[Rfam]
Nucleotides: 129
Base pairs, nucleotide, nucleotide: 001055002054003053004052005051006050014042015041016040017039018038022034023033024032067120068119069118070117071116072115073114075109076108077107078106079105082103085100086099
Number, partner (000 for none) and nucleotide at each position: 001055g002054c003053a004052g005051a006050c007000a008000c009000g010000c011000u012000c013000u014042g015041u016040u017039c018038u019000u020000c021000g022034c023033u024032g025000a026000g027000c028000a029000c030000u031000c032024c033023a034022g035000c036000c037000u038018a039017g040016g041015a042014c043000u044000u045000u046000u047000u048000c049000u050006g051005u052004c053003u054002g055001c056000u057000a058000c059000a060000u061000u062000a063000a064000c065000a066000u067120g068119c069118a070117g071116a072115a073114u074000g075109u076108a077107a078106c079105a080000c081000u082103u083000u084000a085100c086099u087000g088000g089000c090000u091000u092000u093000g094000u095000a096000a097000a098000a099086g100085g101000c102000u103082a104000g105079u106078g107077u108076u109075g110000g111000u112000a113000u114073g115072u116071u117070c118069u119068g120067c121000g122000a123000c124000a125000u126000u127000u128000c129000a